[Rfam]
RNA sequence: UAACCUCUGGCAAGGUUUGUGAAAGUUG
Number, nucleotide and partner (000 for none) at each position: 001u028002a027003a026004c025005c000006u000007c000008u023009g000010g020011c019012a018013a000014g000015g000016u000017u000018u012019g011020u010021g000022a000023a008024a000025g004026u003027u002028g001